[Rfam]
RNA sequence: UAGGGGGGACGGGGGCCCGGACCCCCUCCCCGAGCCUAGGGUAACUCUAAAGGUGGAGGGGAA
Number, nucleotide and partner (000 for none) at each position: 001u000002a000003g000004g000005g000006g000007g000008g042009a000010c040011g000012g000013g037014g036015g035016c034017c032018c000019g030020g029021a000022c000023c061024c060025c059026c058027u057028c056029c020030c019031c000032g017033a000034g016035c015036c014037u013038a000039g000040g010041g000042u008043a000044a000045c000046u000047c000048u000049a000050a000051a000052g000053g000054u000055g000056g028057a027058g026059g025060g024061g023062a000063a000
This 63-nucleotide RNA from Acinonyx jubatus belongs to the Rfam family "Gag/pol translational readthrough site". A reference for the family is ten Dam et al. (1990), "RNA pseudoknots: translational frameshifting and readthrough on viral RNAs", Virus Genes. NCBI's taxonomy places the organism under Eukaryota, Chordata, Gnathostomata, Dipnotetrapodomorpha, Acinonyx. It scores 70 bits against the family's covariance model. The family has 8 seed sequences and 3,368 matches in Rfam 15.1.